[Rfam]
RNA: Alphaproteobacterial ar15
Organism: Gillisella ampelina
RNA sequence: AGCUGAUGCACGCGAUGGCCUUCUACCAGUGCUAUCGCAUCAGCUGUUCCCCUCUGGAGGUUUUAACCUUCACACUUCAAGGGCCUCGGUUUUCCGAUGGCCCUAUUUU
Dot-bracket structure: (((((.(((.....((((.............)))).))).))))).........(((((((....))))))).......((((((((((....)))).)))))).....
Numbered sequence: 001a002g003c004u005g006a007u008g009c010a011c012g013c014g015a016u017g018g019c020c021u022u023c024u025a026c027c028a029g030u031g032c033u034a035u036c037g038c039a040u041c042a043g044c045u046g047u048u049c050c051c052c053u054c055u056g057g058a059g060g061u062u063u064u065a066a067c068c069u070u071c072a073c074a075c076u077u078c079a080a081g082g083g084c085c086u087c088g089g090u091u092u093u094c095c096g097a098u099g100g101c102c103c104u105a106u107u108u109u
Stems, first nucleotide, its partner, number of pairs: 001045005007039003015035004055072007080104006086097004